The family of this 104-nucleotide RNA from Dicentrarchus labrax is "Vault RNA". This family of RNAs are found as part of the enigmatic vault ribonucleoprotein complex. The complex consists of a major vault protein (MVP), two minor vault proteins (VPARP and TEP1), and several small untranslated RNA molecules. It has been suggested that the vault complex is involved in drug resistance. The family's consensus secondary structure is taken from published work. Lineage of the source: Eukaryota > Chordata > Euteleostomi > Osteoglossocephalai > Dicentrarchus. The literature on the family includes a 2009 paper in Mol Biol Evol by Stadler et al., "Evolution of Vault RNAs".

RNA sequence: GCACUGGUUUAGCUCAGUGGUUACUUUGCUCACAUUUCUCUCUGUAGAAAAGCUGAUCUCCAUCCCUCCGUGGGAUCGAACCACGGGCGCUGUCCAGUGUUUUU
Numbered sequence: 001g002c003a004c005u006g007g008u009u010u011a012g013c014u015c016a017g018u019g020g021u022u023a024c025u026u027u028g029c030u031c032a033c034a035u036u037u038c039u040c041u042c043u044g045u046a047g048a049a050a051a052g053c054u055g056a057u058c059u060c061c062a063u064c065c066c067u068c069c070g071u072g073g074g075a076u077c078g079a080a081c082c083a084c085g086g087g088c089g090c091u092g093u094c095c096a097g098u099g100u101u102u103u104u
Stems, first nucleotide, its partner, number of pairs: 002099006012088004017084004025080004